[Rfam]
Rfam assigns this 99-nucleotide sequence from Gordonia humi to the family "mraW RNA". Rfam classes the family as a cis-regulatory element.

RNA sequence: ACCCUGCGGUGAGAUGAGGCCUCGGCCCGAUCGACCCUGACGUACUUCCCCAACGCCAGGUGCGCUCGGGCGGGGACCCCGCCUCACCGCAGAGUCGUC
Numbered sequence: 001a002c003c004c005u006g007c008g009g010u011g012a013g014a015u016g017a018g019g020c021c022u023c024g025g026c027c028c029g030a031u032c033g034a035c036c037c038u039g040a041c042g043u044a045c046u047u048c049c050c051c052a053a054c055g056c057c058a059g060g061u062g063c064g065c066u067c068g069g070g071c072g073g074g075g076a077c078c079c080c081g082c083c084u085c086a087c088c089g090c091a092g093a094g095u096c097g098u099c
Stems, first nucleotide, its partner, number of pairs: 010086004015081002018078002021075003025071006032064002036060004041055003
The organism belongs to Gordonia, within Bacteria.